[Rfam]
Rfam assigns this 84-nucleotide RNA from Papaver somniferum to the family "Small nucleolar RNA Z102/R77". Its family is annotated with RNA processing and nucleolus in the Gene Ontology. The base pairs follow the family's consensus structure, which was predicted with PFOLD.
Nucleotides: 084
Base pairs, nucleotide, nucleotide: 003082004081005080041056042055043054044053
Number, partner (000 for none) and nucleotide at each position: 001000g002000u003082a004081u005080g006000a007000g008000g009000u010000u011000a012000u013000g014000a015000u016000u017000a018000g019000a020000u021000a022000a023000u024000u025000u026000a027000c028000c029000u030000a031000u032000u033000g034000g035000u036000u037000u038000g039000a040000u041056u042055g043054u044053c045000g046000a047000a048000a049000c050000g051000a052000u053044g054043a055042c056041a057000u058000a059000a060000a061000u062000g063000u064000a065000u066000u067000c068000c069000g070000u071000c072000u073000a074000u075000c076000u077000g078000a079000u080005c081004a082003u083000u084000c